[Rfam]
Shown here is a 129-nucleotide RNA sequence from Aquarana catesbeiana, a member of the family "Small nucleolar RNA SNORA49". Rfam 15.1 lists 722 matches to the family in 550 species. The snoRNA ACA49 has no identified RNA target. NB genomic sequence 1-nt different from published. The family's RNA type in Rfam is H/ACA-box small nucleolar RNA. The family's consensus secondary structure was predicted with RNAalifold. Taxonomically the source falls in Aquarana (Eukaryota, Eumetazoa, Euteleostomi, Amphibia).
RNA sequence: AUUCCUCAUCCUUACUCCAGGGUUAUUGUUGUCUAUACAUUCUCUGGCAUUACUUGAGGAUAAAGUAAAUGUUCUGUUGCUACCUCUGGAAUCCCAUUUCCAAAGGAAUGGCAAAGUUGAGCAUACAUU
Numbered sequence: 001a002u003u004c005c006u007c008a009u010c011c012u013u014a015c016u017c018c019a020g021g022g023u024u025a026u027u028g029u030u031g032u033c034u035a036u037a038c039a040u041u042c043u044c045u046g047g048c049a050u051u052a053c054u055u056g057a058g059g060a061u062a063a064a065g066u067a068a069a070u071g072u073u074c075u076g077u078u079g080c081u082a083c084c085u086c087u088g089g090a091a092u093c094c095c096a097u098u099u100c101c102a103a104a105g106g107a108a109u110g111g112c113a114a115a116g117u118u119g120a121g122c123a124u125a126c127a128u129u
Stems, first nucleotide, its partner, number of pairs: 003060006017047006025041001027039003070123003074119001085106001087102004
Dot-bracket structure: ..((((((........((((((..(.(((.......))).))))))).......)))))).........(((.(..........(.((((........))))...)............).)))......